[Rfam]
RNA sequence: GGCUUAAAGGGUGCGUAGGCGGCCUGUUAAGUAGGGCGUGAAAUCUGUCGGCUCAACCGGCAAAUUGCGUUCUAAACUGGCAGGCUUGAGUGGGUCAGGGGUGUGUGGAACUUCCGGUGGAGCGGUGAAAUGUGUUGAUAUCGGAAGGAACGCCGGUGGCGAAAGCGACACGCUGGGGCCUGUCUGACGCUGAGGCACGAAAGCCAGGGUAGCGAACGGGAUUAGAUACCCCGGUAGUCUUGGCUGUAAACGAUGAACACUAGGUUGGGGGGGCUUGUUCCUCCCAGCCGUAGCGAAAGCGUUAAGUGUUCCGCCUGGGGAGUAUGGUCGCAAGGCUGAAACUCAAAGGAAU
Numbered sequence: 001g002g003c004u005u006a007a008a009g010g011g012u013g014c015g016u017a018g019g020c021g022g023c024c025u026g027u028u029a030a031g032u033a034g035g036g037c038g039u040g041a042a043a044u045c046u047g048u049c050g051g052c053u054c055a056a057c058c059g060g061c062a063a064a065u066u067g068c069g070u071u072c073u074a075a076a077c078u079g080g081c082a083g084g085c086u087u088g089a090g091u092g093g094g095u096c097a098g099g100g101g102u103g104u105g106u107g108g109a110a111c112u113u114c115c116g117g118u119g120g121a122g123c124g125g126u127g128a129a130a131u132g133u134g135u136u137g138a139u140a141u142c143g144g145a146a147g148g149a150a151c152g153c154c155g156g157u158g159g160c161g162a163a164a165g166c167g168a169c170a171c172g173c174u175g176g177g178g179c180c181u182g183u184c185u186g187a188c189g190c191u192g193a194g195g196c197a198c199g200a201a202a203g204c205c206a207g208g209g210u211a212g213c214g215a216a217c218g219g220g221a222u223u224a225g226a227u228a229c230c231c232c233g234g235u236a237g238u239c240u241u242g243g244c245u246g247u248a249a250a251c252g253a254u255g256a257a258c259a260c261u262a263g264g265u266u267g268g269g270g271g272g273g274c275u276u277g278u279u280c281c282u283c284c285c286a287g288c289c290g291u292a293g294c295g296a297a298a299g300c301g302u303u304a305a306g307u308g309u310u311c312c313g314c315c316u317g318g319g320g321a322g323u324a325u326g327g328u329c330g331c332a333a334g335g336c337u338g339a340a341a342c343u344c345a346a347a348g349g350a351a352u
Stems, first nucleotide, its partner, number of pairs: 001315003009312001011198004016192001018191003022085007030078002032074009046062006089185002092181005100174007107151001111147008122133003159166002203244006212238002217233004255311006263289011293300002317344003326337004
RNA: Bacterial small subunit ribosomal RNA, nucleotides 563 to 914
Organism: uncultured myxobacterium HF0200_08J13